[Rfam]
RNA sequence: CACUUAUCUAGAGUCAGGGUAGGAACUGGUCCAACGACCCUGCAGCAACCGCUUGUUUGAAGUAAGGUGCUAAUUCCAGCAGACAGAGAUGUCUGAGAGAUGAGAG
Numbered sequence: 001c002a003c004u005u006a007u008c009u010a011g012a013g014u015c016a017g018g019g020u021a022g023g024a025a026c027u028g029g030u031c032c033a034a035c036g037a038c039c040c041u042g043c044a045g046c047a048a049c050c051g052c053u054u055g056u057u058u059g060a061a062g063u064a065a066g067g068u069g070c071u072a073a074u075u076c077c078a079g080c081a082g083a084c085a086g087a088g089a090u091g092u093c094u095g096a097g098a099g100a101u102g103a104g105a106g
Base pairs, nucleotide, nucleotide: 001106003104004103005102006101007100008099013043015042016041017040018039022032023031024030026079027078028077029076044071045070046069047068049067050066051063052062053061054060075098080095081094082093083092084091085090
Shown here is a 106-nucleotide sequence from Terribacillus sp. AE2B 122, a member of the family "SAM riboswitch aptamer (S box leader)". On this family, see Grundy and Henkin, Mol Microbiol 1998: "The S box regulon: a new global transcription termination control system for methionine and cysteine biosynthesis genes in gram-positive bacteria". The family's consensus secondary structure is taken from published work. About the family: The SAM riboswitch is found upstream of a number of genes which code for proteins involved in methionine or cysteine biosynthesis in Gram-positive bacteria.